[Rfam]
Nucleotides: 053
Stems, first nucleotide, its partner, number of pairs: 011042001012040002015038001019035006
Number, partner (000 for none) and nucleotide at each position: 001000a002000u003000g004000u005000a006000a007000a008000a009000g010000u011042u012040g013039u014000g015038a016000a017000g018000u019035c020034g021033c022032u023031c024030u025000g026000g027000a028000u029000a030024a031023g032022a033021g034020c035019g036000u037000c038015u039013g040012c041000u042011a043000a044000a045000u046000g047000c048000c049000u050000g051000u052000a053000a
Record summary: The family of this 53-nucleotide RNA sequence from Anguilla anguilla is "UnaL2 LINE 3' element". The organism belongs to Anguilla, within Eukaryota. The family's consensus secondary structure is taken from published work. A reference for the family is Baba et al. (2004), "Solution structure of an RNA stem-loop derived from the 3' conserved region of eel LINE UnaL2", RNA. It is annotated as a cis-regulatory element. A search with the family's covariance model found it, with a score of 55 bits.